Rfam assigns this 60-nucleotide RNA sequence from Chanos chanos to the family "mir-723 microRNA precursor family". The family's consensus secondary structure was predicted with RNAalifold. Its family is annotated with RISC complex and miRNA-mediated post-transcriptional gene silencing in the Gene Ontology.
[Rfam]
RNA sequence: GGCAGCUUUGUGUGAUGUUACUUCUUUCGAAUUGAAGAAGACAUCAGAUAAAUCUGUGCU
Number, nucleotide and partner (000 for none) at each position: 001g000002g057003c056004a055005g054006c000007u052008u051009u050010g049011u000012g000013u046014g045015a044016u043017g042018u041019u000020a000021c040022u039023u038024c037025u036026u035027u034028c000029g000030a000031a000032u000033u000034g027035a026036a025037g024038a023039a022040g021041a018042c017043a016044u015045c014046a013047g000048a000049u010050a009051a008052a007053u000054c005055u004056g003057u002058g000059c000060u000